Shown here is a 510-nucleotide part of an RNA from uncultured SAR11 cluster bacterium HF0010_09O16, a member of the family "Bacterial small subunit ribosomal RNA". The base pairs follow the family's consensus structure, which is taken from published work. The family is grouped with related families in Rfam's "SSU clan". Its family is annotated with structural constituent of ribosome and ribosome in the Gene Ontology. Rfam 15.1 lists 42,628 matches to the family in 10,626 species. It is one of the family's seed sequences.
[Rfam]
RNA sequence: AAACUUGAGAGUUUGAUCAUGGCUCAGAACGUACGCUGGCGGCACGCCUAACACAUGCAAGUCGAACGAAGUAGCAAUACUUAGUGGCAGACGGGUGAGUAACAUGUGGGUAUCUGCCCUUUGGCCUGGAAUAACACGAGGAAACUUGUGCUAAUACUGGAUAAGUCUUUACGGAGAAAGCUUUAUGCACCAUUGGAUGAGCCCGCACUUGAUUAGUUUGUUGGUGGGGUAAUGGCCUACCAAGACUUUGAUCAAUAGCUGAUUUGAGAGGAUGAUCAGCCACAUUGGGACUGAGACACGGCCCAAACUCCUACGGGAGGCAGCAGUGGGGAAUCUUGCACAAUGGAGGAAACUCUGAUGCAGCGAUGCCGCGUGAGUGAAGAAGGCCCUUGGGUUGUAAAGCUCUUUCGUCGGGGAAGAAAAUGACUGUACCCGAAUAAGAAGGUCCGGCUAACUUCGUGCCAGCAGCCGCGGUAAUACGAAGGGACCUAGCGUAGUUCGGAAUUACUG
Numbered sequence: 001a002a003a004c005u006u007g008a009g010a011g012u013u014u015g016a017u018c019a020u021g022g023c024u025c026a027g028a029a030c031g032u033a034c035g036c037u038g039g040c041g042g043c044a045c046g047c048c049u050a051a052c053a054c055a056u057g058c059a060a061g062u063c064g065a066a067c068g069a070a071g072u073a074g075c076a077a078u079a080c081u082u083a084g085u086g087g088c089a090g091a092c093g094g095g096u097g098a099g100u101a102a103c104a105u106g107u108g109g110g111u112a113u114c115u116g117c118c119c120u121u122u123g124g125c126c127u128g129g130a131a132u133a134a135c136a137c138g139a140g141g142a143a144a145c146u147u148g149u150g151c152u153a154a155u156a157c158u159g160g161a162u163a164a165g166u167c168u169u170u171a172c173g174g175a176g177a178a179a180g181c182u183u184u185a186u187g188c189a190c191c192a193u194u195g196g197a198u199g200a201g202c203c204c205g206c207a208c209u210u211g212a213u214u215a216g217u218u219u220g221u222u223g224g225u226g227g228g229g230u231a232a233u234g235g236c237c238u239a240c241c242a243a244g245a246c247u248u249u250g251a252u253c254a255a256u257a258g259c260u261g262a263u264u265u266g267a268g269a270g271g272a273u274g275a276u277c278a279g280c281c282a283c284a285u286u287g288g289g290a291c292u293g294a295g296a297c298a299c300g301g302c303c304c305a306a307a308c309u310c311c312u313a314c315g316g317g318a319g320g321c322a323g324c325a326g327u328g329g330g331g332a333a334u335c336u337u338g339c340a341c342a343a344u345g346g347a348g349g350a351a352a353c354u355c356u357g358a359u360g361c362a363g364c365g366a367u368g369c370c371g372c373g374u375g376a377g378u379g380a381a382g383a384a385g386g387c388c389c390u391u392g393g394g395u396u397g398u399a400a401a402g403c404u405c406u407u408u409c410g411u412c413g414g415g416g417a418a419g420a421a422a423a424u425g426a427c428u429g430u431a432c433c434c435g436a437a438u439a440a441g442a443a444g445g446u447c448c449g450g451c452u453a454a455c456u457u458c459g460u461g462c463c464a465g466c467a468g469c470c471g472c473g474g475u476a477a478u479a480c481g482a483a484g485g486g487a488c489c490u491a492g493c494g495u496a497g498u499u500c501g502g503a504a505u506u507a508c509u510g
Base pairs, nucleotide, nucleotide: 009025010024011023012022013021027500028499029498030497032496033495034494035493036492037491039372040371041370042369043368044367045365046364047330052328053327054326056325057324058323061088062087063086066085067084069082070081071080072079073078095283096282097281105207106206107205108204109203110202111201113200114199118196119195122192123191124190126160127159128158129157135150136149137148138147139146140145166175167174168173180188181187209255210254211253216246217245218244221243222242223241224240225239226238227237228236258280259279260278261277262273263272264271265270285306286305287304288303289302308319309318310317311316336362338361339360340359344357345356346355347354348353375405376404377403378402385396386395387394388393409441411436412435413434414433415432419427444489445488446487447486448485455484456483457482458481459480465472466471